[Rfam]
The family of this 74-nucleotide RNA from Candidatus Ishikawella capsulata is "tRNA".

RNA sequence: GCACCCGUAGCUCAGUUGGAUAGAGCAAUACCCUCCGGAGGUAAAGGUCUCAGGUUCAAAUCCUGUCGGGUGCA
Numbered sequence: 001g002c003a004c005c006c007g008u009a010g011c012u013c014a015g016u017u018g019g020a021u022a023g024a025g026c027a028a029u030a031c032c033c034u035c036c037g038g039a040g041g042u043a044a045a046g047g048u049c050u051c052a053g054g055u056u057c058a059a060a061u062c063c064u065g066u067c068g069g070g071u072g073c074a
Base pairs, nucleotide, nucleotide: 001073002072003071004070005069006068007067010026011025012024013023029043030042031041032040051065052064053063054062

The organism belongs to Candidatus Ishikawella capsulata, within Bacteria. About the family: Transfer RNA (tRNA) molecules are approximately 80 nucleotides in length. The match comes from Rfam's covariance-model search (62 bits). The base pairs follow the family's consensus structure, which is taken from published work.